[Rfam]
RNA: mir-449 microRNA precursor family
RNA sequence: UGUGUGAUGGGUUGGCAGUGUAUUGUUAGCUGGUUGAAUAUGUGAGUGCCAUCAGCUAACAUGCAACUGCUAUCUUAUUGCAUGUA
Dot-bracket structure: (((((((((((.((((((((((..((((((((((....(((....)))..)))))))))).))).))))))).)))))))))))..
Numbered sequence: 001u002g003u004g005u006g007a008u009g010g011g012u013u014g015g016c017a018g019u020g021u022a023u024u025g026u027u028a029g030c031u032g033g034u035u036g037a038a039u040a041u042g043u044g045a046g047u048g049c050c051a052u053c054a055g056c057u058a059a060c061a062u063g064c065a066a067c068u069g070c071u072a073u074c075u076u077a078u079u080g081c082a083u084g085u086a
Stems, first nucleotide, its partner, number of pairs: 001084011013072007020064003025060010039048003